Shown here is a 154-nucleotide sequence from Neotoma lepida, a member of the family "Small nucleolar RNA SNORA70". The base pairs follow the family's consensus structure, which was predicted with PFOLD.
RNA sequence: CUCCAGGCAGAUAAGCCAACAGGGUUUCUUUCUUCACCUGGGGGGAGGGGGGAGGAGGAAUGGGACCGUGUGCAAUAGCUAUAAACAGCAGCCUCCUUGGUAGUAUACAUCCUGUUGCUUAUAUAGGUUCUCCUAAGGGACCCUGGAGAGUUUU
Number, nucleotide and partner (000 for none) at each position: 001c000002u074003c000004c072005a071006g000007g000008c000009a000010g000011a000012u000013a000014a000015g000016c000017c000018a000019a069020c068021a000022g066023g000024g000025u065026u064027u063028c062029u000030u000031u000032c000033u000034u000035c000036a000037c000038c000039u000040g000041g000042g000043g000044g000045g000046a000047g000048g000049g000050g000051g000052g000053a000054g000055g000056a000057g000058g000059a000060a000061u000062g028063g027064g026065a025066c022067c000068g020069u019070g000071u005072g004073c000074a002075a000076u000077a000078g000079c000080u000081a000082u000083a000084a000085a000086c000087a000088g000089c000090a000091g000092c000093c000094u000095c000096c000097u000098u000099g142100g141101u140102a000103g000104u000105a000106u000107a000108c000109a129110u000111c127112c126113u125114g000115u000116u000117g000118c000119u000120u000121a000122u000123a000124u000125a113126g112127g111128u000129u109130c000131u000132c000133c000134u000135a000136a000137g000138g000139g000140a101141c100142c099143c000144u000145g000146g000147a000148g000149a000150g000151u000152u000153u000154u000
Rfam links the family to the GO terms nucleolus and RNA processing. A reference for the family is Charette and Gray (2000), "Pseudouridine in RNA: what, where, how, and why", IUBMB Life. A search with the family's covariance model found it, with a score of 76 bits. Rfam describes the family as follows. snoRNA U70 seems to be exclusive to mammals and is a member of the H/ACA class of snoRNA which contain H (ANANNA) and ACA box motifs. H/ACA box snoRNAs are involved in the conversion of uridines to pseudouridines (5-ribosyluracil) a constituent of structural RNAs (transfer, ribosomal, small nuclear, and small nucleolar).